Record summary: Shown here is a 252-nucleotide RNA from Enterovirus coxsackiepol, a member of the family "Picornavirus internal ribosome entry site (IRES)". Rfam's curators write: This family represents the Picornavirus internal ribosome entry site (IRES). IRES elements allow cap and end-independent translation of mRNA in the host cell. The family's consensus secondary structure was predicted with PFOLD.
RNA sequence: CACAGGACGCUAGAUGUGAACAAGGUGUGAAGAGCCCACUGAGCUACAAGAGAGUCCUCCGGCCCCUGAAUGCGGCUAAUCCCAACCACGGAGCAGGUAGUUGCAAACCAGCAGCCGGCCUGUCGUAACGCGCAAGUCUGUGGCGGAACCGACUACUUUGGGUGACCGUGUUUCCUUUUAUCUUUUCAAUGGCUGCUUAUGGUGACAAUCAUUGAUUGUUAUCAUAAAGCGACUUGGAUUGGCCAUCCGGUG
Numbered sequence: 001c002a003c004a005g006g007a008c009g010c011u012a013g014a015u016g017u018g019a020a021c022a023a024g025g026u027g028u029g030a031a032g033a034g035c036c037c038a039c040u041g042a043g044c045u046a047c048a049a050g051a052g053a054g055u056c057c058u059c060c061g062g063c064c065c066c067u068g069a070a071u072g073c074g075g076c077u078a079a080u081c082c083c084a085a086c087c088a089c090g091g092a093g094c095a096g097g098u099a100g101u102u103g104c105a106a107a108c109c110a111g112c113a114g115c116c117g118g119c120c121u122g123u124c125g126u127a128a129c130g131c132g133c134a135a136g137u138c139u140g141u142g143g144c145g146g147a148a149c150c151g152a153c154u155a156c157u158u159u160g161g162g163u164g165a166c167c168g169u170g171u172u173u174c175c176u177u178u179u180a181u182c183u184u185u186u187c188a189a190u191g192g193c194u195g196c197u198u199a200u201g202g203u204g205a206c207a208a209u210c211a212u213u214g215a216u217u218g219u220u221a222u223c224a225u226a227a228a229g230c231g232a233c234u235u236g237g238a239u240u241g242g243c244c245a246u247c248c249g250g251u252g
Base pairs, nucleotide, nucleotide: 005011006010020026021025034196035195042194043193044192045191046190050183060168061167062166064162065161066160073151074150075149080147081146082145086143087142088141089140090139091138092137094122095121096120097119098117100115101114102113103112104111124130125129198226199225200224201223202222203221204220205219206218207217208216209215210214